RNA sequence: AUUCUCUGGUUUCUCUUCAGAUCGAAUAAAUCUUUUGCCCUUUACUAAAGAUUUCCGUGGAGGGGUUUUUAAAAAAAAAAAAUACAUUGUCUGUUCUGCAGGUGAGUAGGCUUGAGU
Numbered sequence: 001a002u003u004c005u006c007u008g009g010u011u012u013c014u015c016u017u018c019a020g021a022u023c024g025a026a027u028a029a030a031u032c033u034u035u036u037g038c039c040c041u042u043u044a045c046u047a048a049a050g051a052u053u054u055c056c057g058u059g060g061a062g063g064g065g066u067u068u069u070u071a072a073a074a075a076a077a078a079a080a081a082a083u084a085c086a087u088u089g090u091c092u093g094u095u096c097u098g099c100a101g102g103u104g105a106g107u108a109g110g111c112u113u114g115a116g117u
Stems, first nucleotide, its partner, number of pairs: 003078001005076001009068001012065008028054008097116001099114004

Notes:
The record is a 117-nucleotide RNA sequence from Aquarana catesbeiana, which matches "U5 spliceosomal RNA" in Rfam. It is annotated as a spliceosomal small nuclear RNA. For this family Rfam cites "The uRNA database" (Zwieb, Nucleic Acids Res, 1997).